[Rfam]
RNA sequence: GGCCUGUGAUGCAUCAAUUUGUCCGUACCAUCUGAGACUCUGUCUCUGACGAAUGCUCAAAUUAUUGAAUCUGAGGCUU
Numbered sequence: 001g002g003c004c005u006g007u008g009a010u011g012c013a014u015c016a017a018u019u020u021g022u023c024c025g026u027a028c029c030a031u032c033u034g035a036g037a038c039u040c041u042g043u044c045u046c047u048g049a050c051g052a053a054u055g056c057u058c059a060a061a062u063u064a065u066u067g068a069a070u071c072u073g074a075g076g077c078u079u
Base pairs, nucleotide, nucleotide: 001078002077003076004075

small nucleolar RNA snoR117: a 79-nucleotide sequence from Cajanus cajan. It is annotated as a C/D-box small nucleolar RNA. A reference for the family is Chen and Wu (2009), "Mining small RNA sequencing data: a new approach to identify small nucleolar RNAs in Arabidopsis", Nucleic Acids Res. Rfam 15.1 lists 419 matches to the family in 211 species. It scores 63 bits against the family's covariance model. Its family is annotated with nucleolus and RNA processing in the Gene Ontology. The organism belongs to Cajanus, within Eukaryota.